[Rfam]
RNA sequence: UGUGCUGACCGAAAGGUCCUGGUCCACCAAAUGGCGGGGAUAACAACC
Numbered sequence: 001u002g003u004g005c006u007g008a009c010c011g012a013a014a015g016g017u018c019c020u021g022g023u024c025c026a027c028c029a030a031a032u033g034g035c036g037g038g039g040a041u042a043a044c045a046a047c048c
Base pairs, nucleotide, nucleotide: 001026002025004023005022006021007018008017009016010015

The family of this 48-nucleotide RNA sequence is "DUF3800-XI RNA". Actinobacteria, Firmicutes, Proteobacteria, Spirochaetes (1 example). Rfam's curators put it in the seed alignment. Rfam classes the family as a small RNA.